Notes:
The record is a 287-nucleotide sequence from Molossus molossus, which matches "Mason-Pfizer monkey virus packaging signal" in Rfam. Rfam links the family to the GO term viral genome packaging. The family's RNA type in Rfam is cis-regulatory element. It scores 94 bits against the family's covariance model. NCBI's taxonomy places the organism under Eukaryota, Metazoa, Theria, Molossidae, Molossus.

RNA sequence: UGGCGCCCAAUGUGGGGCUCCAGCACGGGGGAUCCAGUGAAUUAUGCCAUUCAAGUGGCUGGAAGAAAGUAAAGCAAAGGAAAAGAAAGUAAAAGAAAAGAGGGAACGACGUGGGAACCUGCUGCGUCUGCACCCCUCGGGUAAGUGAAUGGCGAUUAUGGGUCAAGUAUUGAGCCAAGAUAAGAUGUUCAUUGAAGGACUAGGAAAGGCUAUCAAGACACAAGAAGUAAAGGUAAAAAUCAAGCAUUUGUGUCAGUAUUUUGAAUAUGUUAAGGAAGUUUGUCCUU
Numbered sequence: 001u002g003g004c005g006c007c008c009a010a011u012g013u014g015g016g017g018c019u020c021c022a023g024c025a026c027g028g029g030g031g032a033u034c035c036a037g038u039g040a041a042u043u044a045u046g047c048c049a050u051u052c053a054a055g056u057g058g059c060u061g062g063a064a065g066a067a068a069g070u071a072a073a074g075c076a077a078a079g080g081a082a083a084a085g086a087a088a089g090u091a092a093a094a095g096a097a098a099a100g101a102g103g104g105a106a107c108g109a110c111g112u113g114g115g116a117a118c119c120u121g122c123u124g125c126g127u128c129u130g131c132a133c134c135c136c137u138c139g140g141g142u143a144a145g146u147g148a149a150u151g152g153c154g155a156u157u158a159u160g161g162g163u164c165a166a167g168u169a170u171u172g173a174g175c176c177a178a179g180a181u182a183a184g185a186u187g188u189u190c191a192u193u194g195a196a197g198g199a200c201u202a203g204g205a206a207a208g209g210c211u212a213u214c215a216a217g218a219c220a221c222a223a224g225a226a227g228u229a230a231a232g233g234u235a236a237a238a239a240u241c242a243a244g245c246a247u248u249u250g251u252g253u254c255a256g257u258a259u260u261u262u263g264a265a266u267a268u269g270u271u272a273a274g275g276a277a278g279u280u281u282g283u284c285c286u287u
Base pairs, nucleotide, nucleotide: 006031007030008029012026013025014024035061036060037059038058100138101137102135103134107130110126111125112124113123114122146165147164148163150162153160154159172213174210175209176208221263222262223261224260225259227257228256231249232248233247234246272287273286274285275284276283